Record summary
A member of the RNA family "Small nucleolar RNA snR80" from Spathaspora passalidarum, 168 nucleotides long. The family is grouped with related families in Rfam's "SNORA28 clan". Lineage of the source: Eukaryota > Opisthokonta > Ascomycota > Spathaspora > Spathaspora passalidarum. The family has 6 seed sequences and 447 matches in Rfam 15.1.
RNA sequence: GCAUGUUUGCCAACACUCUGGUGCCAUAUCAUCCUUUGCUAUUUAUAGCUUAGAAUGCCAUAUUUGGUUCCUAUUUUGGUGCAAACUAGAAUAUUUUUAGCUGACUACUCACCAUUAUACUCCUUUUUCCACUAUGGGUAUGAUCAGGUCCAUUUCAUUAGCUUACAU
Number, nucleotide and partner (000 for none) at each position: 001g000002c000003a000004u000005g000006u000007u084008u083009g082010c000011c000012a000013a000014c000015a000016c000017u000018c000019u000020g071021g070022u000023g068024c067025c000026a065027u000028a063029u062030c000031a000032u000033c000034c000035u000036u000037u000038g000039c000040u000041a000042u000043u000044u000045a000046u000047a000048g000049c000050u000051u000052a000053g000054a000055a000056u000057g000058c000059c000060a000061u000062a029063u028064u000065u026066g000067g024068u023069u000070c021071c020072u000073a000074u000075u000076u000077u000078g000079g000080u000081g000082c009083a008084a007085a000086c000087u000088a000089g000090a000091a000092u000093a000094u000095u000096u000097u000098u000099a163100g162101c161102u160103g000104a000105c000106u000107a000108c000109u000110c000111a000112c148113c147114a144115u143116u000117a141118u140119a139120c000121u138122c137123c136124u000125u000126u000127u000128u000129c000130c000131a000132c000133u000134a000135u000136g123137g122138g121139u119140a118141u117142g000143a115144u114145c000146a000147g113148g112149u000150c000151c000152a000153u000154u000155u000156c000157a000158u000159u000160a102161g101162c100163u099164u000165a000166c000167a000168u000